[Rfam]
RNA sequence: AAAACUCUGAGGACGGAACUGGUAGCCGUAGCCCAUCGUAAGAUGUAGGAGAUGUGGGAGUACCACCCCACCUAGUUUU
Numbered sequence: 001a002a003a004a005c006u007c008u009g010a011g012g013a014c015g016g017a018a019c020u021g022g023u024a025g026c027c028g029u030a031g032c033c034c035a036u037c038g039u040a041a042g043a044u045g046u047a048g049g050a051g052a053u054g055u056g057g058g059a060g061u062a063c064c065a066c067c068c069c070a071c072c073u074a075g076u077u078u079u
Stems, first nucleotide, its partner, number of pairs: 001079006009072001013029004020065005032049001034045004054071005
The record is a 79-nucleotide RNA, which matches "skipping-rope RNA" in Rfam. Pairs were carried over by alignment from the consensus structure, which is taken from published work.